This 87-nucleotide RNA sequence from Corallincola holothuriorum belongs to the Rfam family "RpsF leader". Rfam describes the family as follows. Conserved and widely distributed to many bacterial species RNA structure. It precedes operon containing rpsF, which encodes ribosomal protein S6. The motif also precedes operon containing rpsR, which encodes ribosomal protein S18. The RNA was shown to interact with S6:S18 protein dimer in vitro. Rfam links the family to the GO terms negative regulation of translation and protein binding. The pairing is the family consensus, mapped onto this sequence. For this family Rfam cites "Bacterial RNA motif in the 5' UTR of rpsF interacts with an S6:S18 complex" (Fu et al., RNA, 2014). A search with the family's covariance model found it, with a score of 43 bits. The organism belongs to Corallincola, within Bacteria.

[Rfam]
RNA sequence: UCAGCCAUUUCAUAAGUUCCUUGCCUCUAUAUCGGUGUGGCUGAGCCGAGGCCCAGAGGCUGUUAACCCGUAAGGAGCGUUUAAAUG
Numbered sequence: 001u002c003a004g005c006c007a008u009u010u011c012a013u014a015a016g017u018u019c020c021u022u023g024c025c026u027c028u029a030u031a032u033c034g035g036u037g038u039g040g041c042u043g044a045g046c047c048g049a050g051g052c053c054c055a056g057a058g059g060c061u062g063u064u065a066a067c068c069c070g071u072a073a074g075g076a077g078c079g080u081u082u083a084a085a086u087g
Base pairs, nucleotide, nucleotide: 016078017077018076019075020074021073022072023060024059025058026057027056028055032049033048034047